[Rfam]
RNA sequence: AGGGGGAACGCCGGAUCCUGGACUGUGUCCUCUGGCACCCUGGGCUCCGGGGCCAGUGCUGCUAGAGUCGCGCUCCCGGUCUGCGGCUCCCG
Numbered sequence: 001a002g003g004g005g006g007a008a009c010g011c012c013g014g015a016u017c018c019u020g021g022a023c024u025g026u027g028u029c030c031u032c033u034g035g036c037a038c039c040c041u042g043g044g045c046u047c048c049g050g051g052g053c054c055a056g057u058g059c060u061g062c063u064a065g066a067g068u069c070g071c072g073c074u075c076c077c078g079g080u081c082u083g084c085g086g087c088u089c090c091c092g
Stems, first nucleotide, its partner, number of pairs: 002091005010084002013081002017079002020076003024072004028066002031064001033061006042054001044053003

The family of this 92-nucleotide sequence from Canis lupus is "mir-8799 microRNA precursor family". Taxonomically the source falls in Canis lupus (Eukaryota, Bilateria, Tetrapoda, Carnivora). Its family is annotated with miRNA-mediated post-transcriptional gene silencing and RISC complex in the Gene Ontology.